[Rfam]
RNA sequence: CGUGAGUGCAUUGUAGUUGCAUUGCAUUGAUAUUUAAAACAUGCAAUACUUCUUCAGUGCAACUCCCG
Numbered sequence: 001c002g003u004g005a006g007u008g009c010a011u012u013g014u015a016g017u018u019g020c021a022u023u024g025c026a027u028u029g030a031u032a033u034u035u036a037a038a039a040c041a042u043g044c045a046a047u048a049c050u051u052c053u054u055c056a057g058u059g060c061a062a063c064u065c066c067c068g
Base pairs, nucleotide, nucleotide: 001068002067004065006064007061008060009059010058011057012056013055015053016052019049021047022046023045024044025043026042027041
RNA: mir-33 microRNA precursor family
Organism: Trichogramma brassicae